A member of the RNA family "Small Cajal body specific RNA 24" from Alligator sinensis, 137 nucleotides long. The family's consensus secondary structure was predicted with RNAfold. The literature on the family includes a 2002 paper in EMBO J by Darzacq et al., "Cajal body-specific small nuclear RNAs: a novel class of 2'-O-methylation and pseudouridylation guide RNAs". The match comes from Rfam's covariance-model search (90 bits). scaRNAs are a specific class of small nuclear RNAs which localise to the Cajal bodies and guide the modification of RNA polymerase II transcribed spliceosomal RNAs U1, U2, U4, U5 and U12. ACA12 belongs to the H/ACA box class of guide RNAs as it has the predicted hairpin-hinge-hairpin-tail structure,the conserved H/ACA-box motifs and is found associated with GAR1. It is annotated as a small Cajal body RNA. Lineage of the source: Eukaryota > Chordata > Craniata > Gnathostomata > Alligator. The family is grouped with related families in Rfam's "SCARNA3 clan".
RNA sequence: UGGAUGCUUAAGGUUUUUUUUUAUAGUUUCUCCUGUAUAUGGUGACAACUGAACAAAAGUAUCCUACAGUAACACAGAAGCUAUCUGUUCAACCCUGAUAAGUUAAAAGGGUUUGGAUCGUUCCACUUCUGACAGCU
Numbered sequence: 001u002g003g004a005u006g007c008u009u010a011a012g013g014u015u016u017u018u019u020u021u022u023a024u025a026g027u028u029u030c031u032c033c034u035g036u037a038u039a040u041g042g043u044g045a046c047a048a049c050u051g052a053a054c055a056a057a058a059g060u061a062u063c064c065u066a067c068a069g070u071a072a073c074a075c076a077g078a079a080g081c082u083a084u085c086u087g088u089u090c091a092a093c094c095c096u097g098a099u100a101a102g103u104u105a106a107a108a109g110g111g112u113u114u115g116g117a118u119c120g121u122u123c124c125a126c127u128u129c130u131g132a133c134a135g136c137u
Base pairs, nucleotide, nucleotide: 002064003063004062005061006060007059008058009057025050026049027048028047029045030044032042033041075131076130077129078128079127080126094110095109096108